[Rfam]
RNA sequence: AAGAAAGUGACUGCCGCCCCGCACAGGGGCGACCCCAAUAAACCAACAGCAAAACGGGAUCCGGCCAACAAAACGGUCAAUUAGAAGCAGUAGUAGCCUGCUUGCUACGCAAAGUCCCGC
Numbered sequence: 001a002a003g004a005a006a007g008u009g010a011c012u013g014c015c016g017c018c019c020c021g022c023a024c025a026g027g028g029g030c031g032a033c034c035c036c037a038a039u040a041a042a043c044c045a046a047c048a049g050c051a052a053a054a055c056g057g058g059a060u061c062c063g064g065c066c067a068a069c070a071a072a073a074c075g076g077u078c079a080a081u082u083a084g085a086a087g088c089a090g091u092a093g094u095a096g097c098c099u100g101c102u103u104g105c106u107a108c109g110c111a112a113a114g115u116c117c118c119g120c
Stems, first nucleotide, its partner, number of pairs: 011087002014084001015031006058078003
About this RNA
Shown here is a 120-nucleotide sequence from Caballeronia novacaledonica, a member of the family "Burkholderia sRNA Bp1_Cand684_SIPHT". The source organism's lineage runs through Bacteria, Pseudomonadota, Burkholderiales, Burkholderiaceae and Caballeronia. By type it is a small RNA. For this family Rfam cites "Computational discovery and RT-PCR validation of novel Burkholderia conserved and Burkholderia pseudomallei unique sRNAs" (Khoo et al., BMC Genomics, 2012). The family has 14 seed sequences and 176 matches in Rfam 15.1. The match comes from Rfam's covariance-model search (45 bits).